[Rfam]
RNA sequence: AGACCCUCCGCGGAAGAGUCCGAAUCGGUGCAAACCGUUUCGGCGCCGAAGGCGCAACCGCCCCGGAAACGCUCAGGCCAAUGGACCGCGCGAGGGAUG
Numbered sequence: 001a002g003a004c005c006c007u008c009c010g011c012g013g014a015a016g017a018g019u020c021c022g023a024a025u026c027g028g029u030g031c032a033a034a035c036c037g038u039u040u041c042g043g044c045g046c047c048g049a050a051g052g053c054g055c056a057a058c059c060g061c062c063c064c065g066g067a068a069a070c071g072c073u074c075a076g077g078c079c080a081a082u083g084g085a086c087c088g089c090g091c092g093a094g095g096g097a098u099g
Stems, first nucleotide, its partner, number of pairs: 006094003009090005020043004045078003048074002052072003058066002